This 181-nucleotide sequence from Chroococcidiopsis thermalis belongs to the Rfam family "c-di-AMP riboswitch aptamer (ydaO/yuaA leader)". NCBI's taxonomy places the organism under Bacteria, Cyanobacteriota, Chroococcidiopsidaceae, Chroococcidiopsis, Chroococcidiopsis thermalis.
[Rfam]
RNA sequence: AGGAGUUCAAGACUUUAGUAAAACUGGAGCGGAGGAACCAAAAUCUGGGGCUUAUCUGGUUUAAAGAUGAAUUAGCAAGAACGAGUAUCGAGUUCAGAUCUUCAUAAUUCAUCCUUGACAAGAAGAACAUCUCUCAGUUCUAGCCCGUCAGCUAACUCCGUAGGCGUUGAGAGGAGACUGA
Numbered sequence: 001a002g003g004a005g006u007u008c009a010a011g012a013c014u015u016u017a018g019u020a021a022a023a024c025u026g027g028a029g030c031g032g033a034g035g036a037a038c039c040a041a042a043a044u045c046u047g048g049g050g051c052u053u054a055u056c057u058g059g060u061u062u063a064a065a066g067a068u069g070a071a072u073u074a075g076c077a078a079g080a081a082c083g084a085g086u087a088u089c090g091a092g093u094u095c096a097g098a099u100c101u102u103c104a105u106a107a108u109u110c111a112u113c114c115u116u117g118a119c120a121a122g123a124a125g126a127a128c129a130u131c132u133c134u135c136a137g138u139u140c141u142a143g144c145c146c147g148u149c150a151g152c153u154a155a156c157u158c159c160g161u162a163g164g165c166g167u168u169g170a171g172a173g174g175a176g177a178c179u180g181a
Stems, first nucleotide, its partner, number of pairs: 006028003029161006039047002048146003056122002059119003125140004